[Rfam]
RNA sequence: GGUUGGACAAUGAUGAUGCCUUUUAUUGUAGACUAGAGUCUCUGAUCUCUCGCCAUUAUUAUGUCCGAGAGGUUGAUGACUAUCCCUUGGCUGUCUGAGUUUAACC
Numbered sequence: 001g002g003u004u005g006g007a008c009a010a011u012g013a014u015g016a017u018g019c020c021u022u023u024u025a026u027u028g029u030a031g032a033c034u035a036g037a038g039u040c041u042c043u044g045a046u047c048u049c050u051c052g053c054c055a056u057u058a059u060u061a062u063g064u065c066c067g068a069g070a071g072g073u074u075g076a077u078g079a080c081u082a083u084c085c086c087u088u089g090g091c092u093g094u095c096u097g098a099g100u101u102u103a104a105c106c
Stems, first nucleotide, its partner, number of pairs: 001106008039078001041076002047071005
This 106-nucleotide RNA from Zingiber officinale belongs to the Rfam family "Small nucleolar RNA Z157/R69/R10". It scores 56 bits against the family's covariance model. Clan: SNORD52 clan. A reference for the family is Chen et al. (2003), "The high diversity of snoRNAs in plants: identification and comparative study of 120 snoRNA genes from Oryza sativa", Nucleic Acids Res. Lineage of the source: Eukaryota > Streptophytina > Euphyllophyta > Mesangiospermae > Zingiber. By type it is a C/D-box small nucleolar RNA.